RNA sequence: GUCAGAUGAUUUGAAUUGAUAAGCUGAUGUUCUGUGAGGUACAAAAGUUAAUAGCAUGUUAGAGUUCUGAUGGCA
Numbered sequence: 001g002u003c004a005g006a007u008g009a010u011u012u013g014a015a016u017u018g019a020u021a022a023g024c025u026g027a028u029g030u031u032c033u034g035u036g037a038g039g040u041a042c043a044a045a046a047g048u049u050a051a052u053a054g055c056a057u058g059u060u061a062g063a064g065u066u067c068u069g070a071u072g073g074c075a
Stems, first nucleotide, its partner, number of pairs: 001074004
A member of the RNA family "Small nucleolar RNA SNORD28", 75 nucleotides long.